[Rfam]
Description:
A member of the RNA family "ASpks TB sRNA", 75 nucleotides long. A reference for the family is Arnvig and Young (2009), "Identification of small RNAs in Mycobacterium tuberculosis", Mol Microbiol.
RNA sequence: CUUGAUGGAGCCGAGCAGCAACGGCCGCUCCUCGGGCCGCUCUUGACCGUAGGUGGCGAGCAGGGCCUGGGCCUC
Numbered sequence: 001c002u003u004g005a006u007g008g009a010g011c012c013g014a015g016c017a018g019c020a021a022c023g024g025c026c027g028c029u030c031c032u033c034g035g036g037c038c039g040c041u042c043u044u045g046a047c048c049g050u051a052g053g054u055g056g057c058g059a060g061c062a063g064g065g066c067c068u069g070g071g072c073c074u075c
Base pairs, nucleotide, nucleotide: 015025016024031071032070033069038065043060044059047056048055049054
Pairs were carried over by alignment from the consensus structure, which is taken from published work.